Rfam assigns this 117-nucleotide RNA sequence from Struthio camelus to the family "Small nucleolar RNA SNORD90". Gene Ontology terms of the family: nucleolus and RNA processing. snoRNA HBII-295 belongs to the family of C/D snoRNAs. It is the human orthologue of the mouse MBII-295 and has no identified RNA target.
[Rfam]
RNA sequence: AGUCUAGUUAAAGUCUGUGUCUUAUGAUGAAGCUUCAUAGGGCAGAUUCUGAGCUGAGAAAUGAAAUCUCUCUCCACUGAUAUUCACUGUAUGCCAUCUGAAGACACAACUUAUUAC
Numbered sequence: 001a002g003u004c005u006a007g008u009u010a011a012a013g014u015c016u017g018u019g020u021c022u023u024a025u026g027a028u029g030a031a032g033c034u035u036c037a038u039a040g041g042g043c044a045g046a047u048u049c050u051g052a053g054c055u056g057a058g059a060a061a062u063g064a065a066a067u068c069u070c071u072c073u074c075c076a077c078u079g080a081u082a083u084u085c086a087c088u089g090u091a092u093g094c095c096a097u098c099u100g101a102a103g104a105c106a107c108a109a110c111u112u113a114u115u116a117c
Stems, first nucleotide, its partner, number of pairs: 013110002016108007032097001036093003041085002045081001048080002051077001053075001056072003